Annotation
Rfam assigns this 53-nucleotide RNA sequence from Serratia plymuthica to the family "Xanthine riboswitch aptamer (NMT1 RNA)". The source organism's lineage runs through Bacteria, Pseudomonadati, Gammaproteobacteria, Yersiniaceae and Serratia plymuthica. On this family, see Yu and Breaker, RNA 2020: "A bacterial riboswitch class senses xanthine and uric acid to regulate genes associated with purine oxidation".
RNA sequence: AGAGUGAGUAGAAGCGGUCAGUGCAGGCAGUUGCGCGGGACAUUGCUCAGCAA
Numbered sequence: 001a002g003a004g005u006g007a008g009u010a011g012a013a014g015c016g017g018u019c020a021g022u023g024c025a026g027g028c029a030g031u032u033g034c035g036c037g038g039g040a041c042a043u044u045g046c047u048c049a050g051c052a053a
Stems, first nucleotide, its partner, number of pairs: 005049006015038001018040002021036006
The sequence is in the family's curated seed alignment.
Gene Ontology term of the family: purine nucleobase binding.